[Rfam]
This 74-nucleotide sequence from Anabas testudineus belongs to the Rfam family "mir-30 microRNA precursor family".
It scores 62 bits against the family's covariance model.
The source organism's lineage runs through Eukaryota, Metazoa, Craniata, Clupeocephala and Anabas.
Pairs were carried over by alignment from the consensus structure, which was predicted with PFOLD.
For this family Rfam cites "miRNPs: a novel class of ribonucleoproteins containing numerous microRNAs" (Mourelatos et al., Genes Dev, 2002).
About the family: This family consists of the mammalian microRNA (miRNA) precursor mir-30a. Animal miRNAs are transcribed as ~70nt precursors and subsequently processed by the Dicer enzyme to give a ~22nt product. In this case the mature sequence comes from both the 3' (miR-30) and 5' (mir-97-6) arms of the precursor. The extents of the hairpin precursors are not generally known and are estimated based on hairpin prediction. The products are thought to have regulatory roles through complementarity to mRNA. The involvement of Dicer in miRNA processing suggests a relationship with the phenomenon of RNA interference. miRNAs are numbered based on the sequence of the mature RNA.
Its family is annotated with RISC complex and gene silencing by miRNA in the Gene Ontology.
RNA sequence: UUUGAGGCUGUAAACAUCCCCGACUGGAAGCUGUCUAUCUGCAGAGCUUUCAGUCUGAUGUUUGCUGCUGCCGA
Numbered sequence: 001u002u003u004g005a006g007g008c009u010g011u012a013a014a015c016a017u018c019c020c021c022g023a024c025u026g027g028a029a030g031c032u033g034u035c036u037a038u039c040u041g042c043a044g045a046g047c048u049u050u051c052a053g054u055c056u057g058a059u060g061u062u063u064g065c066u067g068c069u070g071c072c073g074a
Base pairs, nucleotide, nucleotide: 002073004071006069008067010065011064012063013062014061015060016059017058018057023054024053025052026051027050028049029048030047031046032045